[Rfam]
RNA sequence: UUGGUCCUGGACCUAGCAUACAGUGUAAUUUCUGUGUGGUUUAAACAACAGCUACAUUGUCUGCUGGGUUUCAGGCUGGUGAC
Numbered sequence: 001u002u003g004g005u006c007c008u009g010g011a012c013c014u015a016g017c018a019u020a021c022a023g024u025g026u027a028a029u030u031u032c033u034g035u036g037u038g039g040u041u042u043a044a045a046c047a048a049c050a051g052c053u054a055c056a057u058u059g060u061c062u063g064c065u066g067g068g069u070u071u072c073a074g075g076c077u078g079g080u081g082a083c
Stems, first nucleotide, its partner, number of pairs: 013067006020060008032051004
A member of the RNA family "mir-221 microRNA precursor family" from Esox lucius, 83 nucleotides long. A search with the family's covariance model found it, with a score of 71 bits.